A member of the RNA family "Glycine riboswitch aptamer" from a Solemya velesiana gill symbiont, 98 nucleotides long. It scores 40 bits against the family's covariance model. Pairs were carried over by alignment from the consensus structure. This family represents the bacterial glycine riboswitch.

RNA sequence: CAGGUUGACUCUGGAGGGCGGUCUUAGGGCCCACCGACGGGGCAGAGCCUGCACAGAGUGCGGCUUUAAACUCUCAGGUUUUGGACAGAGGGGCGGCG
Numbered sequence: 001c002a003g004g005u006u007g008a009c010u011c012u013g014g015a016g017g018g019c020g021g022u023c024u025u026a027g028g029g030c031c032c033a034c035c036g037a038c039g040g041g042g043c044a045g046a047g048c049c050u051g052c053a054c055a056g057a058g059u060g061c062g063g064c065u066u067u068a069a070a071c072u073c074u075c076a077g078g079u080u081u082u083g084g085a086c087a088g089a090g091g092g093g094c095g096g097c098g
Base pairs, nucleotide, nucleotide: 006093009090010089011088012087013086020031021030022029023028033079034078035077036075037074040073041072042071046066047065